[Rfam]
Nucleotides: 130
Stems, first nucleotide, its partner, number of pairs: 021043004026038004047070004052065002076092006094110006
Number, partner (000 for none) and nucleotide at each position: 001000u002000g003000g004000u005000u006000u007000a008000g009000a010000a011000c012000u013000c014000a015000g016000c017000u018000u019000a020000a021043c022042c023041c024040g025000u026038c027037g028036c029035c030000g031000c032000a033000a034000a035029g036028g037027u038026g039000u040024c041023g042022g043021g044000c045000g046000g047070g048069g049068u050067c051000a052065g053064u054000c055000a056000c057000g058000c059000c060000g061000g062000c063000a064053a065052c066000a067050g068049a069048c070047c071000c072000c073000a074000u075000a076092g077091g078090c079089g080088g081087a082000a083000a084000c085000c086000u087081u088080c089079c090078g091077c092076c093000u094110g095109g096108c097107c098106u099105c100000c101000c102000u103000g104000g105099g106098g107097g108096g109095c110094c111000a112000a113000c114000g115000g116000g117000a118000c119000a120000u121000a122000a123000c124000a125000g126000u127000c128000a129000a130000c